[Rfam]
RNA sequence: GCGUUGUUGGUAAUGUCUAUAUAAACAUGCCUUGGGAAAGCCGAACAAAAUGAGUGAGAAGUCACUACAGUUUCAUUCAUCAAACUGCGGUCU
Dot-bracket structure: (.(((....................(((.(.(((...........)))...).)))................................))).)
RNA: Small nucleolar RNA SNORD116